[Rfam]
RNA sequence: CUCGUCCGCCCCGUGGACGCCCCUGACCAUCCCCGGCCGACCCCGGUUACCCUGGCGAGGUGCGCCUACCGGGGGCAGUUCCCGGAAUGACGCAAAGCCGACAGCCGUCGCACCUAAGGGAGCCCCUUAAUG
Numbered sequence: 001c002u003c004g005u006c007c008g009c010c011c012c013g014u015g016g017a018c019g020c021c022c023c024u025g026a027c028c029a030u031c032c033c034c035g036g037c038c039g040a041c042c043c044c045g046g047u048u049a050c051c052c053u054g055g056c057g058a059g060g061u062g063c064g065c066c067u068a069c070c071g072g073g074g075g076c077a078g079u080u081c082c083c084g085g086a087a088u089g090a091c092g093c094a095a096a097g098c099c100g101a102c103a104g105c106c107g108u109c110g111c112a113c114c115u116a117a118g119g120g121a122g123c124c125c126c127u128u129a130a131u132g
Stems, first nucleotide, its partner, number of pairs: 061094004067087001069085007097111002100109003
Dot-bracket structure: ............................................................((((..(.(((((((...))))))).)...))))..((.(((....))))).....................